[Rfam]
Nucleotides: 142
Base pairs, nucleotide, nucleotide: 011127012126013125014124018033019032020031021030022029023028034122035121036120037119038118039117044053045052054107055106056105062076063075064074065073079102080101081100082099
Number, partner (000 for none) and nucleotide at each position: 001000c002000u003000u004000c005000a006000u007000a008000u009000a010000c011127g012126g013125c014124u015000c016000a017000a018033u019032c020031c021030u022029g023028a024000g025000a026000a027000a028023u029022c030021a031020g032019g033018a034122a035121c036120g037119g038118a039117g040000g041000a042000a043000c044053c045052a046000a047000u048000u049000a050000u051000u052045u053044g054107g055106g056105g057000u058000u059000a060000a061000u062076u063075c064074u065073g066000c067000c068000a069000u070000a071000c072000g073065c074064a075063g076062a077000a078000g079102g080101g081100a082099u083000g084000a085000g086000u087000a088000a089000c090000u091000c092000u093000u094000u095000c096000g097000c098000c099082a100081u101080c102079c103000u104000a105056c106055c107054c108000g109000u110000c111000a112000g113000c114000u115000a116000a117039c118038u119037u120036c121035g122034u123000c124014g125013g126012c127011u128000a129000a130000a131000g132000c133000g134000a135000g136000g137000g138000a139000g140000g141000u142000c